[Rfam]
RNA sequence: UGGUAAUUCCGUACAAACCUUUCGGCACAAACAAGAUAAGACGGAUAGUUUGUGCCGAAAGGUUUGUACGGAAUUAUCA
Numbered sequence: 001u002g003g004u005a006a007u008u009c010c011g012u013a014c015a016a017a018c019c020u021u022u023c024g025g026c027a028c029a030a031a032c033a034a035g036a037u038a039a040g041a042c043g044g045a046u047a048g049u050u051u052g053u054g055c056c057g058a059a060a061g062g063u064u065u066g067u068a069c070g071g072a073a074u075u076a077u078c079a
Stems, first nucleotide, its partner, number of pairs: 001079002004076004009071008018062012033049001

The family of this 79-nucleotide RNA sequence from Coptotermes formosanus is "mir-147 microRNA precursor family". The literature on the family includes a 2008 paper in BMC Genomics by Kawaji et al., "Hidden layers of human small RNAs". Taxonomically the source falls in Coptotermes (Eukaryota, Hexapoda, Blattoidea, Coptotermitinae).